RNA sequence: CAAAGAAUUCUUAAAAAUAAAUAUCAGCUGGUAAUUCUGGGAUUUAUUUACAAAAAACAUUGGCAUUCCCCGGAAUUUCAGUUGGUAUGGAUUUUUUCGAAUUC
Numbered sequence: 001c002a003a004a005g006a007a008u009u010c011u012u013a014a015a016a017a018u019a020a021a022u023a024u025c026a027g028c029u030g031g032u033a034a035u036u037c038u039g040g041g042a043u044u045u046a047u048u049u050a051c052a053a054a055a056a057a058c059a060u061u062g063g064c065a066u067u068c069c070c071c072g073g074a075a076u077u078u079c080a081g082u083u084g085g086u087a088u089g090g091a092u093u094u095u096u097u098c099g100a101a102u103u104c
Stems, first nucleotide, its partner, number of pairs: 013096006021088011034076008

This 104-nucleotide sequence from Musca domestica belongs to the Rfam family "mir-283 microRNA precursor family".
On this family, see Ruby et al., Genome Res 2007: "Evolution, biogenesis, expression, and target predictions of a substantially expanded set of Drosophila microRNAs".
Taxonomically the source falls in Musca (Eukaryota, Protostomia, Insecta, Neoptera).